[Rfam]
A member of the RNA family "Glycine riboswitch aptamer" from Pseudonocardia cypriaca, 99 nucleotides long.
The source organism's lineage runs through Bacteria, Bacillati, Actinomycetota, Actinomycetes and Pseudonocardia.
RNA sequence: CCUCUGGAAAGCGACGGGCCUGCCCGUCCGCCGACGGGGAAAGCCCUGGUCUCGAAGGGUGAAUCUCUCAGGCGCCCGGUAGCCGGGCGGGGACAGAGG
Numbered sequence: 001c002c003u004c005u006g007g008a009a010a011g012c013g014a015c016g017g018g019c020c021u022g023c024c025c026g027u028c029c030g031c032c033g034a035c036g037g038g039g040a041a042a043g044c045c046c047u048g049g050u051c052u053c054g055a056a057g058g059g060u061g062a063a064u065c066u067c068u069c070a071g072g073c074g075c076c077c078g079g080u081a082g083c084c085g086g087g088c089g090g091g092g093a094c095a096g097a098g099g
Stems, first nucleotide, its partner, number of pairs: 001099006013028004030073003033069002037067003043060005
The match comes from Rfam's covariance-model search (39 bits).